[Rfam]
RNA sequence: UCAAAAGAGGUUCCUAGCUGAAACCCUCUAUAAAAAACUAGACAAUA
Numbered sequence: 001u002c003a004a005a006a007g008a009g010g011u012u013c014c015u016a017g018c019u020g021a022a023a024c025c026c027u028c029u030a031u032a033a034a035a036a037a038c039u040a041g042a043c044a045a046u047a
Base pairs, nucleotide, nucleotide: 006029007028008027009026010025015040016039

The family of this 47-nucleotide sequence from Staphylococcus haemolyticus is "PreQ1 (pre queuosine) riboswitch aptamer". The literature on the family includes a 2009 paper in J Biol Chem by Spitale et al., "The structural basis for recognition of the PreQ0 metabolite by an unusually small riboswitch aptamer domain". The family has 43 seed sequences and 873 matches in Rfam 15.1. The base pairs follow the family's consensus structure. This family is a bacterial riboswitch that binds to the metabolite preQ1, an intermediate in the biosynthesis of the modified nucleoside queuosine from GTP. One example of this riboswitch is located in the leader of the Bacillus subtilis ykvJKLM (queCDEF) operon which encodes four genes necessary for queuosine production. PreQ1 binding to the riboswitch aptamer is thought to induce premature transcription termination within the leader to down-regulate expression of these genes.